[Rfam]
RNA sequence: UACAAAGGGCGUACGGGGGAUGCCUUGGCUCUCGGAGGCGAUGAAGGGCGUGACAAGCUGCGAAAAACUGCGGGGAUUGGCAAAUACGAAUCGAUCCGCAGGUACCCGAAUGGGACAACCCAUCGCAAGCAAUUGCGAUAUUCGAAAGAAGGCCAACCCGGGGAACUGAAACAUCUAAGUACCCGGAGGAAAAGAAAACAAUAGUGAUUCCCAAAGUAGUGGCGAUCGAAAUGGGAAUAGCCUAAACCGUUGUUGUUUCGGCAAUAGCGGGGUUGUAGGGCUGCAAUAAUUUUUAGCAUAAAGAAGUGGAACGGUUUUGGAAAGGCCGGCUAUAGAAGGUGAUAGCCCUGUACACGGACAUUAGGUUAAGAAGUGCAGUACCCUGAGUAGGGCGGGACACGAGAAAUCCUGUCUGAAUCUGCCAGGACCAUCUGGUAAGGCUAAAUACUCCCGAGAGACCGAUAGUGAACAAGUACCGUGAGGGAAAGGUGAAAAGCACCCCGAACAGGGGGGUGAAAUAGUACCUGAAACCGUGCGCCUACAAG
Numbered sequence: 001u002a003c004a005a006a007g008g009g010c011g012u013a014c015g016g017g018g019g020a021u022g023c024c025u026u027g028g029c030u031c032u033c034g035g036a037g038g039c040g041a042u043g044a045a046g047g048g049c050g051u052g053a054c055a056a057g058c059u060g061c062g063a064a065a066a067a068c069u070g071c072g073g074g075g076a077u078u079g080g081c082a083a084a085u086a087c088g089a090a091u092c093g094a095u096c097c098g099c100a101g102g103u104a105c106c107c108g109a110a111u112g113g114g115a116c117a118a119c120c121c122a123u124c125g126c127a128a129g130c131a132a133u134u135g136c137g138a139u140a141u142u143c144g145a146a147a148g149a150a151g152g153c154c155a156a157c158c159c160g161g162g163g164a165a166c167u168g169a170a171a172c173a174u175c176u177a178a179g180u181a182c183c184c185g186g187a188g189g190a191a192a193a194g195a196a197a198a199c200a201a202u203a204g205u206g207a208u209u210c211c212c213a214a215a216g217u218a219g220u221g222g223c224g225a226u227c228g229a230a231a232u233g234g235g236a237a238u239a240g241c242c243u244a245a246a247c248c249g250u251u252g253u254u255g256u257u258u259c260g261g262c263a264a265u266a267g268c269g270g271g272g273u274u275g276u277a278g279g280g281c282u283g284c285a286a287u288a289a290u291u292u293u294u295a296g297c298a299u300a301a302a303g304a305a306g307u308g309g310a311a312c313g314g315u316u317u318u319g320g321a322a323a324g325g326c327c328g329g330c331u332a333u334a335g336a337a338g339g340u341g342a343u344a345g346c347c348c349u350g351u352a353c354a355c356g357g358a359c360a361u362u363a364g365g366u367u368a369a370g371a372a373g374u375g376c377a378g379u380a381c382c383c384u385g386a387g388u389a390g391g392g393c394g395g396g397a398c399a400c401g402a403g404a405a406a407u408c409c410u411g412u413c414u415g416a417a418u419c420u421g422c423c424a425g426g427a428c429c430a431u432c433u434g435g436u437a438a439g440g441c442u443a444a445a446u447a448c449u450c451c452c453g454a455g456a457g458a459c460c461g462a463u464a465g466u467g468a469a470c471a472a473g474u475a476c477c478g479u480g481a482g483g484g485a486a487a488g489g490u491g492a493a494a495a496g497c498a499c500c501c502c503g504a505a506c507a508g509g510g511g512g513g514u515g516a517a518a519u520a521g522u523a524c525c526u527g528a529a530a531c532c533g534u535g536c537g538c539c540u541a542c543a544a545g
Stems, first nucleotide, its partner, number of pairs: 007540010022525001023489002027460002029457007036449002038153002046107003049062003068101007077089003112121003122139007141150003157188001158186005168175002198205002208445001209236005219227001239442004247270007277384003281378005291371007299363003303359001306355003312328004317324001331335001337349003390414008421436005476483002499511004
RNA: Bacterial large subunit ribosomal RNA, nucleotides 9 to 553